RNA: RAGATH-18 RNA
RNA sequence: UCUGUGAAGAGUCAUACCAAACGAAAGUAGCAAAUUGCAAAAUCAGACUCUGUGAAGCAGAAA
Numbered sequence: 001u002c003u004g005u006g007a008a009g010a011g012u013c014a015u016a017c018c019a020a021a022c023g024a025a026a027g028u029a030g031c032a033a034a035u036u037g038c039a040a041a042a043u044c045a046g047a048c049u050c051u052g053u054g055a056a057g058c059a060g061a062a063a
Stems, first nucleotide, its partner, number of pairs: 001061005009050005023044002030038003